[Rfam]
Description: This 83-nucleotide sequence from Clostridium taeniosporum belongs to the Rfam family "c-di-GMP-I riboswitch aptamer". Gene Ontology term of the family: cyclic-di-GMP binding. The organism belongs to Clostridium, within Bacteria. The match comes from Rfam's covariance-model search (74 bits).
RNA sequence: CAAUUGAAUAGGCAAAACUAAUUAAAGUUAGUGACGCAAAGCUAUAGGGGCUAAGGAGAAAUCUAUGCCAGCCAGUUGCCGAA
Numbered sequence: 001c002a003a004u005u006g007a008a009u010a011g012g013c014a015a016a017a018c019u020a021a022u023u024a025a026a027g028u029u030a031g032u033g034a035c036g037c038a039a040a041g042c043u044a045u046a047g048g049g050g051c052u053a054a055g056g057a058g059a060a061a062u063c064u065a066u067g068c069c070a071g072c073c074a075g076u077u078g079c080c081g082a083a
Base pairs, nucleotide, nucleotide: 012037013036017032018031019030020029021028022027040077041076042075043074047073048072049069050068051067056063057062